The record is an 89-nucleotide RNA sequence from Sulfitobacter noctilucicola, which matches "Rhodo-rpoB RNA" in Rfam. Rfam classes the family as a cis-regulatory element. Pairs were carried over by alignment from the consensus structure, which is taken from published work.
[Rfam]
RNA sequence: AGGUCGGAAGGGUUGCGGUGGGACGCAAUCCAGCAUUGACCGGACUAAUCCGCUCUGAUGGACGCGCCACGGCCCCGGUGGCGGCGUUC
Number, nucleotide and partner (000 for none) at each position: 001a000002g041003g040004u039005c038006g000007g000008a000009a000010g031011g030012g029013u028014u027015g026016c025017g024018g000019u000020g000021g000022g000023a000024c017025g016026c015027a014028a013029u012030c011031c010032a000033g000034c000035a000036u000037u000038g005039a004040c003041c002042g000043g000044a000045c000046u000047a000048a000049u000050c000051c000052g000053c000054u000055c000056u000057g000058a000059u000060g089061g088062a087063c086064g085065c083066g082067c081068c080069a079070c000071g000072g000073c000074c000075c000076c000077g000078g000079u069080g068081g067082c066083g065084g000085c064086g063087u062088u061089c060